[Rfam]
RNA: Bacillaceae-1 RNA
Organism: Bacillus sp. MUM 13
RNA sequence: UUCAUAGGAUCAAAGACUAAAGACGCCACAUCCUGUGGCAACGUCUUUGUGACCCCCAUCCUGGGGG
Numbered sequence: 001u002u003c004a005u006a007g008g009a010u011c012a013a014a015g016a017c018u019a020a021a022g023a024c025g026c027c028a029c030a031u032c033c034u035g036u037g038g039c040a041a042c043g044u045c046u047u048u049g050u051g052a053c054c055c056c057c058a059u060c061c062u063g064g065g066g067g
Base pairs, nucleotide, nucleotide: 011049012048013047014046015045016044017043025039026038027037028036029035053067054066055065056064057063